[Rfam]
RNA sequence: ACCAUUGAGCCAUCUUUCCAGCCCUUAUAAUCACUCUUAAAAAUUAAUUUUAGGGGGUUGGAAAGAUGGCUCAGUGUU
Numbered sequence: 001a002c003c004a005u006u007g008a009g010c011c012a013u014c015u016u017u018c019c020a021g022c023c024c025u026u027a028u029a030a031u032c033a034c035u036c037u038u039a040a041a042a043a044u045u046a047a048u049u050u051u052a053g054g055g056g057g058u059u060g061g062a063a064a065g066a067u068g069g070c071u072c073a074g075u076g077u078u
Stems, first nucleotide, its partner, number of pairs: 003076022
Rfam assigns this 78-nucleotide RNA from Rattus norvegicus to the family "mir-3473 microRNA precursor family". The family's consensus secondary structure was predicted with RNAalifold. Rfam 15.1 lists 1,094 matches to the family in 20 species.